[Rfam]
Rfam assigns this 337-nucleotide sequence from Caldovatus sediminis to the family "Alphaproteobacteria transfer-messenger RNA". The base pairs follow the family's consensus structure, which is taken from published work. Rfam classes the family as a non-coding RNA gene. About the family: Bacterial tmRNA, also known as 10Sa RNA or SsrA, is named for its dual tRNA and mRNA-like properties. The family is grouped with related families in Rfam's "tRNA clan".

RNA sequence: CCCCUCGAUUCGCGAGCCGGACGGGCCUAUAUUCCGUUCGCCGCCUCGGCGGCUAUGGCGAUAAACGCGGCUCGGAAUAAGCGUAGCGGACCCGGGGGCAGUACCCGGCGCCUCCACCACCUUCCCGGCAGCGGCGGCUUGGCCCGUCCGCUGCCGUCCACGGGGGCGAAACAGGCUCGACGCGCGCGGUAAAGGGGUCGUUUUCGCCCGGCAUGGCUCCGCCGUUAUCGGGCCGAACCACAAGUGCCAACGACAACAGCCGCGAGGCUGUGGCGCUCGCUGCCUGACAUCAGGUAAGCGCGGCCCGGGGGGCGCCGGGCAACAGAAGCCCCCCACU
Numbered sequence: 001c002c003c004c005u006c007g008a009u010u011c012g013c014g015a016g017c018c019g020g021a022c023g024g025g026c027c028u029a030u031a032u033u034c035c036g037u038u039c040g041c042c043g044c045c046u047c048g049g050c051g052g053c054u055a056u057g058g059c060g061a062u063a064a065a066c067g068c069g070g071c072u073c074g075g076a077a078u079a080a081g082c083g084u085a086g087c088g089g090a091c092c093c094g095g096g097g098g099c100a101g102u103a104c105c106c107g108g109c110g111c112c113u114c115c116a117c118c119a120c121c122u123u124c125c126c127g128g129c130a131g132c133g134g135c136g137g138c139u140u141g142g143c144c145c146g147u148c149c150g151c152u153g154c155c156g157u158c159c160a161c162g163g164g165g166g167c168g169a170a171a172c173a174g175g176c177u178c179g180a181c182g183c184g185c186g187c188g189g190u191a192a193a194g195g196g197g198u199c200g201u202u203u204u205c206g207c208c209c210g211g212c213a214u215g216g217c218u219c220c221g222c223c224g225u226u227a228u229c230g231g232g233c234c235g236a237a238c239c240a241c242a243a244g245u246g247c248c249a250a251c252g253a254c255a256a257c258a259g260c261c262g263c264g265a266g267g268c269u270g271u272g273g274c275g276c277u278c279g280c281u282g283c284c285u286g287a288c289a290u291c292a293g294g295u296a297a298g299c300g301c302g303g304c305c306c307g308g309g310g311g312g313c314g315c316c317g318g319g320c321a322a323c324a325g326a327a328g329c330c331c332c333c334c335a336c337u
Stems, first nucleotide, its partner, number of pairs: 040053005057208005067201007082186003086183003092108005109168007209224004214235003218232003301317004307334006